[Rfam]
RNA sequence: GUGGGCUACGGCGACAUGUACCCCGUGACCAUAGGGGGCAAGGUCGUGGGGUCGCUCUGUGCCAUCGCCGGGGUGCUGACGAUCGCUCUGCCAGUCCCCGUGAUCGUCUCCAAU
Numbered sequence: 001g002u003g004g005g006c007u008a009c010g011g012c013g014a015c016a017u018g019u020a021c022c023c024c025g026u027g028a029c030c031a032u033a034g035g036g037g038g039c040a041a042g043g044u045c046g047u048g049g050g051g052u053c054g055c056u057c058u059g060u061g062c063c064a065u066c067g068c069c070g071g072g073g074u075g076c077u078g079a080c081g082a083u084c085g086c087u088c089u090g091c092c093a094g095u096c097c098c099c100g101u102g103a104u105c106g107u108c109u110c111c112a113a114u
Stems, first nucleotide, its partner, number of pairs: 001114002004111002008107004014101002018097001020095002037077004049063002
Shown here is a 114-nucleotide RNA from Scleropages formosus, a member of the family "Potassium channel RNA editing signal". A search with the family's covariance model found it, with a score of 106 bits. By type it is a cis-regulatory element. Rfam links the family to the GO term adenosine to inosine editing. Taxonomically the source falls in Scleropages (Eukaryota, Metazoa, Vertebrata, Osteoglossocephala).